[Rfam]
Shown here is a 52-nucleotide sequence from Capra hircus, a member of the family "mir-1302 microRNA precursor family". Its family is annotated with miRNA-mediated post-transcriptional gene silencing and RISC complex in the Gene Ontology.
RNA sequence: UUUAAAGUAUAAGUAUAUCCCAUGCAACAUGUGGGAUAUACUUAUACUAAAA
Numbered sequence: 001u002u003u004a005a006a007g008u009a010u011a012a013g014u015a016u017a018u019c020c021c022a023u024g025c026a027a028c029a030u031g032u033g034g035g036a037u038a039u040a041c042u043u044a045u046a047c048u049a050a051a052a
Base pairs, nucleotide, nucleotide: 006048007047008046009045010044011043012042014040015039016038018036019035020034021033
The literature on the family includes a 2008 paper in Genome Res by Morin et al., "Application of massively parallel sequencing to microRNA profiling and discovery in human embryonic stem cells".